[Rfam]
RNA sequence: UCGUUAUUAUAAUAUAUGUAUAAUUCCUAGCGGGCAAGAUUUUUUCAAAAAAUGAAAAAUAUCAUAAUCAGUCUAGGUAACAAAAAUUAAAAAGAAAAAUUAUUGUAAUUUUAAAAUUAUUACAAUGGUUUUUUUUUUGCACAA
Number, nucleotide and partner (000 for none) at each position: 001u000002c000003g000004u000005u000006a000007u000008u000009a000010u000011a000012a000013u000014a000015u000016a000017u000018g000019u000020a000021u000022a000023a000024u000025u000026c077027c076028u075029a074030g073031c071032g069033g068034g000035c000036a000037a000038g063039a062040u061041u059042u058043u057044u056045u055046c054047a000048a000049a000050a000051a000052a000053u000054g046055a045056a044057a043058a042059a041060u000061a040062u039063c038064a000065u000066a000067a000068u033069c032070a000071g031072u000073c030074u029075a028076g027077g026078u000079a000080a000081c000082a000083a000084a000085a000086a000087u000088u000089a000090a000091a000092a138093a137094g134095a133096a132097a131098a130099a000100u128101u127102a126103u125104u124105g123106u122107a121108a120109u000110u000111u000112u000113a000114a000115a000116a000117u000118u000119a000120u108121u107122a106123c105124a104125a103126u102127g101128g100129u000130u098131u097132u096133u095134u094135u000136u000137u093138u092139g000140c000141a000142c000143a000144a000
Shown here is a 144-nucleotide RNA sequence from Plasmodium yoelii, a member of the family "small nucleolar RNA snoR31". The family's consensus secondary structure was predicted with RNAalifold.